[Rfam]
RNA sequence: CUCCCGGUAGCUCAGCUGGACAGAGCAACGGACUUCUAAUCCGUGGGUCGGGGGUUCGAAUCCCUCCCGGGAGG
Numbered sequence: 001c002u003c004c005c006g007g008u009a010g011c012u013c014a015g016c017u018g019g020a021c022a023g024a025g026c027a028a029c030g031g032a033c034u035u036c037u038a039a040u041c042c043g044u045g046g047g048u049c050g051g052g053g054g055u056u057c058g059a060a061u062c063c064c065u066c067c068c069g070g071g072a073g074g
Stems, first nucleotide, its partner, number of pairs: 001073007010026004028044005050066005
RNA: tRNA
Organism: Desulfotruncus arcticus